Shown here is a 60-nucleotide RNA sequence from Loxia leucoptera, a member of the family "Small nucleolar RNA Z39".
Its family is annotated with nucleolus and RNA processing in the Gene Ontology.
It is annotated as a C/D-box small nucleolar RNA.
NCBI's taxonomy places the organism under Eukaryota, Teleostomi, Euteleostomi, Theropoda, Loxia.
On this family, see Chen et al., Nucleic Acids Res 2003: "The high diversity of snoRNAs in plants: identification and comparative study of 120 snoRNA genes from Oryza sativa".
A search with the family's covariance model found it, with a score of 48 bits.
Pairs were carried over by alignment from the consensus structure, which was predicted with PFOLD.

RNA sequence: GCACGUGUGAUGUGACACAACAGGGUGAGAAACUGUGACGCUGUAAACGCUUUCUGUGUG
Numbered sequence: 001g002c003a004c005g006u007g008u009g010a011u012g013u014g015a016c017a018c019a020a021c022a023g024g025g026u027g028a029g030a031a032a033c034u035g036u037g038a039c040g041c042u043g044u045a046a047a048c049g050c051u052u053u054c055u056g057u058g059u060g
Base pairs, nucleotide, nucleotide: 002060003059004058005057012053014051016049021043022042023041025039026038